The family of this 71-nucleotide RNA sequence from Rugosibacter aromaticivorans is "int-alpA RNA". Acidobacteria (1 example), Planctomycetes (1 example), Proteobacteria. It scores 63 bits against the family's covariance model. It is annotated as a small RNA. Lineage of the source: Bacteria > Pseudomonadati > Betaproteobacteria > Nitrosomonadales > Rugosibacter.
RNA sequence: CCCCCGCCUAGUUUUAGCGGACGAAGAGCCGGACACCUUCACCGGCCUGACGGGGGUUUCUUAUUUGAAGG
Numbered sequence: 001c002c003c004c005c006g007c008c009u010a011g012u013u014u015u016a017g018c019g020g021a022c023g024a025a026g027a028g029c030c031g032g033a034c035a036c037c038u039u040c041a042c043c044g045g046c047c048u049g050a051c052g053g054g055g056g057u058u059u060c061u062u063a064u065u066u067g068a069a070g071g
Base pairs, nucleotide, nucleotide: 001056002055003054004053005052006051008049011022012021013020014019028046029045030044031043032042036071037070038069039068040067041066
Dot-bracket structure: ((((((.(..((((....)))).....(((((...[[[[[[)))))..).)))))).........]]]]]]